Overview:
t44 RNA: a 100-nucleotide sequence from Pseudomonas corrugata. The family's RNA type in Rfam is small RNA. About the family: This family consists of a number of bacterial RNA genes of between 135 and 170 bases in length. The t44 gene has been identified in several species of enteric bacteria but homologs have also been identified in Pseudomonas and Coxiella species. The t44 gene is found between the map and rpsB genes in all species in the full alignment apart from Shigella flexneri. The match comes from Rfam's covariance-model search (69 bits).
Nucleotides: 100
Stems, first nucleotide, its partner, number of pairs: 023090008035081008048072003
Number, partner (000 for none) and nucleotide at each position: 001000a002000c003000c004000c005000c006000g007000u008000g009000a010000g011000c012000u013000u014000a015000a016000a017000u018000c019000c020000a021000c022000a023090c024089a025088c026087g027086u028085g029084u030083c031000g032000a033000c034000a035081c036080g037079a038078u039077g040076a041075c042074c043000u044000g045000g046000g047000u048072g049071c050070c051000u052000u053000c054000g055000g056000c057000u058000u059000a060000u061000a062000c063000a064000g065000c066000u067000g068000c069000u070050g071049g072048u073000u074042g075041g076040u077039c078038a079037u080036u081035g082000g083030g084029a085028u086027a087026c088025g089024u090023g091000g092000a093000g094000g095000c096000c097000a098000a099000a100000c